This 169-nucleotide RNA from Triticum aestivum belongs to the Rfam family "MIR2118 microRNA precursor family". A reference for the family is Johnson et al. (2009), "Clusters and superclusters of phased small RNAs in the developing inflorescence of rice", Genome Res. It scores 86 bits against the family's covariance model.
RNA sequence: GCUAGUAAGAGGAAGAAAGAGAAGGCGUAAAAGAAGUGUGAAUGUGAACAUAGAGGAAACCCUAACUUUAUUGGUUCUUUACCUCUUUUCUUGAGGUGGAAAUUCAGUUUGGCAUUUCCUGAUGCCUCUCAUUCCAAUUUUUUGGCACUCCUUCCUUUUCCUUUUUGUG
Numbered sequence: 001g002c003u004a005g006u007a008a009g010a011g012g013a014a015g016a017a018a019g020a021g022a023a024g025g026c027g028u029a030a031a032a033g034a035a036g037u038g039u040g041a042a043u044g045u046g047a048a049c050a051u052a053g054a055g056g057a058a059a060c061c062c063u064a065a066c067u068u069u070a071u072u073g074g075u076u077c078u079u080u081a082c083c084u085c086u087u088u089u090c091u092u093g094a095g096g097u098g099g100a101a102a103u104u105c106a107g108u109u110u111g112g113c114a115u116u117u118c119c120u121g122a123u124g125c126c127u128c129u130c131a132u133u134c135c136a137a138u139u140u141u142u143u144g145g146c147a148c149u150c151c152u153u154c155c156u157u158u159u160c161c162u163u164u165u166u167g168u169g
Stems, first nucleotide, its partner, number of pairs: 009160005015154003021150002026145001029142001032141004037136002040134005046128002049124003053120001055119005